[Rfam]
RNA sequence: UAUAUUUGCGCGUCCAAUAUAAAUUUAUAUUGGUUACAUAAAAAUUAUUUACAAAAUAUUGGCAUG
Numbered sequence: 001u002a003u004a005u006u007u008g009c010g011c012g013u014c015c016a017a018u019a020u021a022a023a024u025u026u027a028u029a030u031u032g033g034u035u036a037c038a039u040a041a042a043a044a045u046u047a048u049u050u051a052c053a054a055a056a057u058a059u060u061g062g063c064a065u066g
Base pairs, nucleotide, nucleotide: 014033015032016031017030018029019028
RNA: S15-Flavobacteria ribosomal protein leader